This 47-nucleotide sequence from Tripterygium wilfordii belongs to the Rfam family "Plastid-rpl16 group II-D1 intron". Pairs were carried over by alignment from the consensus structure, which was predicted with LocARNA. Lineage of the source: Eukaryota > Magnoliopsida > Pentapetalae > Celastraceae > Tripterygium. The match comes from Rfam's covariance-model search (46 bits). About the family: Plastid-rpl16 is a non-coding RNA (ncRNA) recognised in plastids. It was recognised in and intronic region of a ribosome rpl16 gene.

[Rfam]
RNA sequence: AAGAGUCUCGAGCCAAUGAAGACAGAGAAAUUGGACUCAAGAACAAA
Numbered sequence: 001a002a003g004a005g006u007c008u009c010g011a012g013c014c015a016a017u018g019a020a021g022a023c024a025g026a027g028a029a030a031u032u033g034g035a036c037u038c039a040a041g042a043a044c045a046a047a
Stems, first nucleotide, its partner, number of pairs: 007041002010038003014033004